[Rfam]
RNA sequence: UGGACAGCACUGGAGACUAAAGUCCUCUAUUUAUCCACCAAACAGGUUCAGCACGGGUAGCAGCAGUGCAAGAUUCUCCACACUGCCCUGCCAAUGUGCCUCAACUCUGACCUGGAGGGACCACCUCUAGGGGUGAGAGCGUAGUUCAGUCUCCAUGCUUCAGUCCUUGGAUUCU
Numbered sequence: 001u002g003g004a005c006a007g008c009a010c011u012g013g014a015g016a017c018u019a020a021a022g023u024c025c026u027c028u029a030u031u032u033a034u035c036c037a038c039c040a041a042a043c044a045g046g047u048u049c050a051g052c053a054c055g056g057g058u059a060g061c062a063g064c065a066g067u068g069c070a071a072g073a074u075u076c077u078c079c080a081c082a083c084u085g086c087c088c089u090g091c092c093a094a095u096g097u098g099c100c101u102c103a104a105c106u107c108u109g110a111c112c113u114g115g116a117g118g119g120a121c122c123a124c125c126u127c128u129a130g131g132g133g134u135g136a137g138a139g140c141g142u143a144g145u146u147c148a149g150u151c152u153c154c155a156u157g158c159u160u161c162a163g164u165c166c167u168u169g170g171a172u173u174c175u
Stems, first nucleotide, its partner, number of pairs: 003161002007158002011155008020146002024141001027139002030137006038109001051099005063086004112130007

Shown here is a 175-nucleotide RNA from Alligator sinensis, a member of the family "TUC338". The family has 34 seed sequences and 75,615 matches in Rfam 15.1. The organism belongs to Alligator, within Eukaryota. The family's RNA type in Rfam is cis-regulatory element. The family's consensus secondary structure was predicted with WAR. The literature on the family includes a 2011 paper in Proc Natl Acad Sci U S A by Braconi et al., "Expression and functional role of a transcribed noncoding RNA with an ultraconserved element in hepatocellular carcinoma".